[Rfam]
RNA sequence: CCACGCGCAGCGGGAGAGCCCGCCGCCGUCCUUUCCCCGGACGGCGGGCGGCGCCGAAGGAGCAAGUCCUCCCCGGGAAUCUCUCAGGCACCCGAACCGCUGCGAGCAG
Numbered sequence: 001c002c003a004c005g006c007g008c009a010g011c012g013g014g015a016g017a018g019c020c021c022g023c024c025g026c027c028g029u030c031c032u033u034u035c036c037c038c039g040g041a042c043g044g045c046g047g048g049c050g051g052c053g054c055c056g057a058a059g060g061a062g063c064a065a066g067u068c069c070u071c072c073c074c075g076g077g078a079a080u081c082u083c084u085c086a087g088g089c090a091c092c093c094g095a096a097c098c099g100c101u102g103c104g105a106g107c108a109g
Base pairs, nucleotide, nucleotide: 006104007103008102009101010100011099012098013097020051021050022049023048053089054088055087056085057084060083061082062081067075

Description
This 109-nucleotide RNA from Kocuria dechangensis belongs to the Rfam family "Glycine riboswitch aptamer". A reference for the family is Mandal et al. (2004), "A glycine-dependent riboswitch that uses cooperative binding to control gene expression", Science. A search with the family's covariance model found it, with a score of 61 bits.